[Rfam]
RNA sequence: GGGAUAUGAUUGGUAGUCAAAACUCGCAAUUACUAAGUGAAAUGGGUGUCCAUCCCAGCCUGGUUACGACAACCAUGGGCACUUUCAUUUUUACCGAUCCAAUCCC
Numbered sequence: 001g002g003g004a005u006a007u008g009a010u011u012g013g014u015a016g017u018c019a020a021a022a023c024u025c026g027c028a029a030u031u032a033c034u035a036a037g038u039g040a041a042a043u044g045g046g047u048g049u050c051c052a053u054c055c056c057a058g059c060c061u062g063g064u065u066a067c068g069a070c071a072a073c074c075a076u077g078g079g080c081a082c083u084u085u086c087a088u089u090u091u092u093a094c095c096g097a098u099c100c101a102a103u104c105c106c
Stems, first nucleotide, its partner, number of pairs: 001106004014097001016095001024040004044084007061075004

The family of this 106-nucleotide RNA sequence from Nicotiana sylvestris is "Small nucleolar RNA Z279/snoR105/snoR108". It is annotated as a C/D-box small nucleolar RNA. The family is grouped with related families in Rfam's "snoU13 clan". The base pairs follow the family's consensus structure, which was predicted with PFOLD. Rfam 15.1 lists 906 matches to the family in 223 species. The organism belongs to Nicotiana, within Eukaryota. A reference for the family is Marker et al. (2002), "Experimental RNomics: identification of 140 candidates for small non-messenger RNAs in the plant Arabidopsis thaliana", Curr Biol.